[Rfam]
RNA sequence: AUAUCGGCGAUGACAAAGAUAGAGUACAAUUACCCUCUGGUCCUUAGAGAGCUUGUGGUUGGUGAAAACAAGUGCCAUGGUAUAUUGGAAUUGGACUUUGGAGCUUUAGAGUAAUGAGAGAUCUUACAACUUUUGUAAGAUAAUAAGGGUGGCACCGCGGUUCAUUCGUCCCUUUU
Dot-bracket structure: ......((......((((........((((.........(.(........((((((...........))))))).).......))))........))))...))................(((((((.......)))))))....((((.......((((.....))))))))...
Numbered sequence: 001a002u003a004u005c006g007g008c009g010a011u012g013a014c015a016a017a018g019a020u021a022g023a024g025u026a027c028a029a030u031u032a033c034c035c036u037c038u039g040g041u042c043c044u045u046a047g048a049g050a051g052c053u054u055g056u057g058g059u060u061g062g063u064g065a066a067a068a069c070a071a072g073u074g075c076c077a078u079g080g081u082a083u084a085u086u087g088g089a090a091u092u093g094g095a096c097u098u099u100g101g102a103g104c105u106u107u108a109g110a111g112u113a114a115u116g117a118g119a120g121a122u123c124u125u126a127c128a129a130c131u132u133u134u135g136u137a138a139g140a141u142a143a144u145a146a147g148g149g150u151g152g153c154a155c156c157g158c159g160g161u162u163c164a165u166u167c168g169u170c171c172c173u174u175u176u
Stems, first nucleotide, its partner, number of pairs: 007104002015099004027087004040076001042074001051073006121141007146173004157169004
A member of the RNA family "T-box leader" from Oceanobacillus halophilus, 176 nucleotides long. It scores 114 bits against the family's covariance model. For this family Rfam cites "Interaction between the acceptor end of tRNA and the T box stimulates antitermination in the Bacillus subtilis tyrS gene: a new role for the discriminator base" (Grundy et al., J Bacteriol, 1994). Rfam's curators write: Uncharged tRNA acts as the effector for transcription antitermination of genes in the T-box leader family. Gene Ontology term of the family: tRNA binding.